[Rfam]
RNA sequence: UAGUGGGGUAGAGGCGCGAUGUUUAAUAGUCUUUAGUGGAGCUUGGGAACGCUGUGAUGCUAAGGAGAAGGGGAUGUCGCCGAAGUGUGGAAUAGGUCUCGCUAUUACAUGCUGGGUCUGCAGUGAAUAAUUGCAGGACUGUCUUAAUAAGCUGACAGGUUUAUUAAGUUGUGCUAUCUCUUGU
Numbered sequence: 001u002a003g004u005g006g007g008g009u010a011g012a013g014g015c016g017c018g019a020u021g022u023u024u025a026a027u028a029g030u031c032u033u034u035a036g037u038g039g040a041g042c043u044u045g046g047g048a049a050c051g052c053u054g055u056g057a058u059g060c061u062a063a064g065g066a067g068a069a070g071g072g073g074a075u076g077u078c079g080c081c082g083a084a085g086u087g088u089g090g091a092a093u094a095g096g097u098c099u100c101g102c103u104a105u106u107a108c109a110u111g112c113u114g115g116g117u118c119u120g121c122a123g124u125g126a127a128u129a130a131u132u133g134c135a136g137g138a139c140u141g142u143c144u145u146a147a148u149a150a151g152c153u154g155a156c157a158g159g160u161u162u163a164u165u166a167a168g169u170u171g172u173g174c175u176a177u178c179u180c181u182u183g184u
Stems, first nucleotide, its partner, number of pairs: 006179006016080009031065008084113006091106005114140002117137008143168009

Source information
A member of the RNA family "Lysine riboswitch aptamer" from Neobacillus bataviensis, 184 nucleotides long. The match comes from Rfam's covariance-model search (98 bits). Taxonomically the source falls in Neobacillus bataviensis (Bacteria, Bacillati, Caryophanales, Bacillaceae). Gene Ontology term of the family: lysine biosynthetic process.